[Rfam]
RNA sequence: UGAAGCCUCCGACGCGACACAACAUCCUGCAGCGGUGUUGUGUGACCUGCAGUGUCCGUCGGAGGUCUCG
Numbered sequence: 001u002g003a004a005g006c007c008u009c010c011g012a013c014g015c016g017a018c019a020c021a022a023c024a025u026c027c028u029g030c031a032g033c034g035g036u037g038u039u040g041u042g043u044g045a046c047c048u049g050c051a052g053u054g055u056c057c058g059u060c061g062g063a064g065g066u067c068u069c070g
Base pairs, nucleotide, nucleotide: 001070002069003068005066006065007064009062010061011060012059013058021039022038023037024036025035026034044056045055046054

The record is a 70-nucleotide RNA sequence from Penicillium arizonense, which matches "bZIP non canonical Hac1/Xbp1 intron" in Rfam.
From the family's description: bZIP intron RNA is a non-canonical intron that was first reported in HAC1 gene in yeast and XBP1 gene in Metazoa.
The match comes from Rfam's covariance-model search (52 bits).
A reference for the family is Hooks and Griffiths-Jones (2011), "Conserved RNA structures in the non-canonical Hac1/Xbp1 intron", RNA Biol.
The source organism's lineage runs through Eukaryota, Opisthokonta, Fungi, Aspergillaceae and Penicillium.